[Rfam]
RNA sequence: GGAAAUGCAAGGAAGAGGAAGCCAUUCUCGUAAUAAGCUGGGUCAGAGAGCUGCUGGUCGGUGCGAAGCAGUCAGCCGCGAUGGAUGGACAUCACCUUGGAGCAGGUUUGCCGAAGAUGUAACGUCCAGAGGCAGGUACGGGAACCCCCAGCCGUUAUCAUGGGGCAUCAUUGAUAGAUGAUGACUAGAGUGCGUAUGGGUGAUUCCAUGCGAAUCAGGGUGGUAACGCGGAGUUUGGCUCCGUCCCUAAC
Number, nucleotide and partner (000 for none) at each position: 001g000002g000003a000004a000005a000006u000007g103008c102009a000010a000011g000012g000013a000014a000015g098016a097017g096018g095019a000020a086021g000022c084023c083024a082025u081026u000027c000028u000029c000030g000031u000032a000033a000034u000035a000036a000037g000038c075039u074040g000041g073042g000043u000044c000045a000046g000047a000048g000049a000050g072051c071052u070053g069054c068055u067056g000057g000058u000059c000060g000061g000062u000063g000064c000065g000066a000067a055068g054069c053070a052071g051072u050073c041074a039075g038076c000077c000078g000079c000080g000081a025082u024083g023084g022085a000086u020087g000088g000089a000090c000091a000092u000093c000094a000095c018096c017097u016098u015099g000100g000101a000102g008103c007104a000105g000106g137107u136108u135109u134110g133111c132112c131113g000114a000115a000116g000117a000118u000119g000120u000121a000122a000123c000124g000125u000126c000127c000128a000129g000130a000131g112132g111133c110134a109135g108136g107137u106138a000139c154140g153141g152142g000143a000144a000145c000146c000147c000148c000149c000150a000151g000152c141153c140154g139155u000156u000157a000158u000159c000160a000161u000162g000163g000164g000165g000166c000167a000168u000169c000170a000171u000172u000173g000174a000175u000176a000177g000178a000179u000180g000181a000182u000183g000184a000185c000186u000187a000188g000189a000190g000191u000192g000193c212194g211195u210196a209197u208198g207199g206200g000201u000202g000203a000204u000205u000206c199207c198208a197209u196210g195211c194212g193213a000214a000215u000216c000217a248218g247219g246220g245221u000222g000223g000224u000225a000226a000227c000228g244229c243230g242231g241232a240233g000234u000235u000236u000237g000238g000239c000240u232241c231242c230243g229244u228245c220246c219247c218248u217249a000250a000251c000
The family of this 251-nucleotide RNA sequence from Paenibacillus sp. JCM 10914 is "T-box leader". Uncharged tRNA acts as the effector for transcription antitermination of genes in the T-box leader family. T-boxes are found upstream of many aminoacyl-tRNA synthetase genes and some amino acid biosynthetic genes usually in Gram-positive bacteria. The anticodon of a specific tRNA base pairs to a specifier sequence within the T-box motif, and the NCCA acceptor tail of the tRNA base pairs to a conserved bulge in the T-box antiterminator hairpin. Rfam classes the family as a cis-regulatory leader.